[Rfam]
The record is a 102-nucleotide RNA sequence from Bacillus gobiensis, which matches "Purine riboswitch aptamer" in Rfam. Pairs were carried over by alignment from the consensus structure, which is taken from published work. Rfam links the family to the GO term purine nucleobase biosynthetic process.
RNA sequence: UCAUAAAAUUAAUAUUGUUUCUGUAUAUGAUCGGUAAUAUGGACUGAUCGUUUCUACCUAGUAACCGUAAAUGACUAGACUACAGAAAAGUUUGGAUAAAUG
Numbered sequence: 001u002c003a004u005a006a007a008a009u010u011a012a013u014a015u016u017g018u019u020u021c022u023g024u025a026u027a028u029g030a031u032c033g034g035u036a037a038u039a040u041g042g043a044c045u046g047a048u049c050g051u052u053u054c055u056a057c058c059u060a061g062u063a064a065c066c067g068u069a070a071a072u073g074a075c076u077a078g079a080c081u082a083c084a085g086a087a088a089a090g091u092u093u094g095g096a097u098a099a100a101u102g
Stems, first nucleotide, its partner, number of pairs: 018088008029049007058078005064072001